The record is a 133-nucleotide RNA sequence from Streptomyces yokosukanensis, which matches "Streptomyces RNA 6925" in Rfam.
Rfam's curators put it in the seed alignment.
The organism belongs to Streptomyces, within Bacteria.
The literature on the family includes a 2011 paper in RNA Biol by Vockenhuber et al., "Deep sequencing-based identification of small non-coding RNAs in Streptomyces coelicolor".
Identified by deep sequencing of transcriptome at the end of exponential growth phase. Sequencing size consistent with northern blot size. Streptomyces specific. Small 12 nt possible coding region observed.
Nucleotides: 133
Base pairs, nucleotide, nucleotide: 002094006049007048010045011044012043013042014041015040016039017038018037023034024033051089052088053087054086056085057084062079063078064077065076066075067074068073099130100129101128102127103126104125105124106123107122108121109120110119111118112117
Number, partner (000 for none) and nucleotide at each position: 001000u002094u003000g004000g005000u006049g007048u008000u009000g010045c011044c012043a013042c014041g015040c016039u017038g018037a019000c020000g021000c022000g023034c024033c025000c026000c027000g028000u029000g030000g031000a032000a033024g034023g035000g036000a037018u038017c039016a040015g041014c042013g043012u044011g045010g046000u047000g048007a049006u050000g051089g052088u053087g054086g055000g056085c057084a058000a059000u060000c061000u062079c063078c064077g065076c066075c067074c068073u069000a070000g071000c072000c073068g074067g075066g076065g077064c078063g079062g080000c081000g082000u083000g084057u085056g086054c087053c088052g089051u090000u091000u092000g093000a094002g095000c096000g097000u098000u099130c100129g101128g102127c103126g104125u105124u106123c107122g108121g109120g110119a111118g112117u113000a114000g115000c116000c117112g118111c119110u120109c121108u122107c123106g124105g125104g126103c127102g128101c129100c130099g131000u132000c133000g